Shown here is a 53-nucleotide sequence from Leminorella richardii, a member of the family "L31-Gammaproteobacteria ribosomal protein leader". On this family, see Eckert and Weinberg, BMC Microbiol 2020: "Discovery of 20 novel ribosomal leader candidates in bacteria and archaea". Clan: Ribosomal Protein L31 Leader clan. Pairs were carried over by alignment from the consensus structure, which is taken from published work.
RNA sequence: CGUAUGGUGUGCGGCAAAUUGGUGUCCGUAUAGCGAUACGACUUUAGAGAGGU
Numbered sequence: 001c002g003u004a005u006g007g008u009g010u011g012c013g014g015c016a017a018a019u020u021g022g023u024g025u026c027c028g029u030a031u032a033g034c035g036a037u038a039c040g041a042c043u044u045u046a047g048a049g050a051g052g053u
Base pairs, nucleotide, nucleotide: 001040002039003038004037005036007034008033011029012028013027014026015024